[Rfam]
Nucleotides: 114
Base pairs, nucleotide, nucleotide: 001114002113003112004111005110012027013026014025015024029103030102031101032099033098036097038095042090043089044088045087046086047085048084
Number, partner (000 for none) and nucleotide at each position: 001114c002113u003112c004111u005110g006000a007000a008000a009000a010000g011000c012027g013026g014025a015024c016000g017000c018000g019000c020000a021000a022000g023000c024015g025014u026013c027012c028000c029103g030102c031101c032099g033098a034000c035000g036097g037000u038095g039000c040000a041000a042090g043089c044088c045087g046086g047085c048084c049000g050000c051000c052000g053000c054000g055000u056000c057000u058000c059000u060000c061000g062000g063000g064000a065000g066000g067000c068000u069000c070000c071000g072000g073000g074000u075000g076000g077000c078000a079000u080000g081000g082000c083000a084048g085047g086046c087045c088044g089043g090042c091000g092000a093000a094000g095038c096000u097036c098033u099032c100000a101031g102030g103029c104000c105000c106000a107000u108000g109000a110005c111004a112003g113002a114001g

The record is a 114-nucleotide sequence from Parafrankia soli, which matches "Glycine riboswitch aptamer" in Rfam.
Lineage of the source: Bacteria > Actinomycetota > Frankiales > Frankiaceae > Parafrankia.
A search with the family's covariance model found it, with a score of 35 bits.